[Rfam]
RNA sequence: GCAGAUGGCCAGGCGUUUGCUGCGUCAGAAAUGGCGGAGAGGAAAGUCCGGGCUCCACAGGACGCAAUGGUGGGUAACGCCCACCGUCCGCGAGGAUAGGGCAAGUGCAACAGAGAGCAGACCGCCUGAACGGUUCUUUUCCGAAGGGGCCGCGAAGAGAAGCUGGCAACGGCUUCCGAGGUAAGGGUGAAACGGUGCGGUAAGAGCGCACCAGCGAUUCAGGUGACUGAGUCGGCUAGGUAAACCCCAUUUGGGAGCAAGACUAAGCAGAAGGAAGAGUGCCUUCGGGUACUCACGAUCUUGUCCGGAUCGUCUGACCUUCGGGUAUGUUGCUGCAGGUGUCGAGUAAUCGGCAUCGUAGAUAAAUGAACGCCCGCGACGGCUUGCGUCGUCGCCGACAAAACCCGGCUUAUCGGCCAUCUGCAAAC
Numbered sequence: 001g002c003a004g005a006u007g008g009c010c011a012g013g014c015g016u017u018u019g020c021u022g023c024g025u026c027a028g029a030a031a032u033g034g035c036g037g038a039g040a041g042g043a044a045a046g047u048c049c050g051g052g053c054u055c056c057a058c059a060g061g062a063c064g065c066a067a068u069g070g071u072g073g074g075u076a077a078c079g080c081c082c083a084c085c086g087u088c089c090g091c092g093a094g095g096a097u098a099g100g101g102c103a104a105g106u107g108c109a110a111c112a113g114a115g116a117g118c119a120g121a122c123c124g125c126c127u128g129a130a131c132g133g134u135u136c137u138u139u140u141c142c143g144a145a146g147g148g149g150c151c152g153c154g155a156a157g158a159g160a161a162g163c164u165g166g167c168a169a170c171g172g173c174u175u176c177c178g179a180g181g182u183a184a185g186g187g188u189g190a191a192a193c194g195g196u197g198c199g200g201u202a203a204g205a206g207c208g209c210a211c212c213a214g215c216g217a218u219u220c221a222g223g224u225g226a227c228u229g230a231g232u233c234g235g236c237u238a239g240g241u242a243a244a245c246c247c248c249a250u251u252u253g254g255g256a257g258c259a260a261g262a263c264u265a266a267g268c269a270g271a272a273g274g275a276a277g278a279g280u281g282c283c284u285u286c287g288g289g290u291a292c293u294c295a296c297g298a299u300c301u302u303g304u305c306c307g308g309a310u311c312g313u314c315u316g317a318c319c320u321u322c323g324g325g326u327a328u329g330u331u332g333c334u335g336c337a338g339g340u341g342u343c344g345a346g347u348a349a350u351c352g353g354c355a356u357c358g359u360a361g362a363u364a365a366a367u368g369a370a371c372g373c374c375c376g377c378g379a380c381g382g383c384u385u386g387c388g389u390c391g392u393c394g395c396c397g398a399c400a401a402a403a404c405c406c407g408g409c410u411u412a413u414c415g416g417c418c419a420u421c422u423g424c425a426a427a428c
Base pairs, nucleotide, nucleotide: 001424002423003422004421005420006419007418008417009416010415011413012374013373014372015371016370017369018368020039021038023036024035025034026033027032044411045410046409048408049407050406051405052404053257054256055255056254060306061305062304063303065253066252067250068249069248070084071083072082073081074080085099086097087096088095089094100247101246105245106244107241108240122186123185124182125181126180127179194212195211196210197209198208199207214236215234216233217232218231219230220229221228222227261331262330263329270322271321272320273319274318297311298310299309300308301307338357339356340355341354342353343352344351345350